[Rfam]
Nucleotides: 086
Stems, first nucleotide, its partner, number of pairs: 001086006008079007017071003021067005028060003
Number, partner (000 for none) and nucleotide at each position: 001086a002085u003084g004083u005082g006081c007000c008079u009078g010077g011076c012075u013074c014073c015000c016000u017071c018070a019069u020000u021067u022066g023065c024064c025063a026000u027000u028060u029059g030058u031000a032000g033000a034000a035000c036000c037000u038000a039000u040000c041000a042000a043000u044000c045000a046000u047000c048000g049000a050000u051000a052000g053000u054000c055000u056000c057000c058030g059029u060028g061000a062000a063025u064024g065023g066022c067021g068000u069019a070018u071017g072000a073014g074013g075012a076011g077010c078009c079008a080000a081006g082005c083004a084003u085002a086001u